[Rfam]
RNA sequence: AACUGGGGGAUGUUUCAAGGACUGUCUAACCUGAGAAUGGUGACACCAAAAGCUCAAUCUCAGGUCCGUCAGCCCAUGAGACGUUCCUUCAAG
Numbered sequence: 001a002a003c004u005g006g007g008g009g010a011u012g013u014u015u016c017a018a019g020g021a022c023u024g025u026c027u028a029a030c031c032u033g034a035g036a037a038u039g040g041u042g043a044c045a046c047c048a049a050a051a052g053c054u055c056a057a058u059c060u061c062a063g064g065u066c067c068g069u070c071a072g073c074c075c076a077u078g079a080g081a082c083g084u085u086c087c088u089u090c091a092a093g
Stems, first nucleotide, its partner, number of pairs: 005090003008086009019075002022072003026068001029065008038056002
The family of this 93-nucleotide RNA from Ophiophagus hannah is "mir-1388 microRNA precursor family". On this family, see Warren et al., Nature 2010: "The genome of a songbird". Pairs were carried over by alignment from the consensus structure, which was predicted with RNAalifold. The organism belongs to Ophiophagus, within Eukaryota.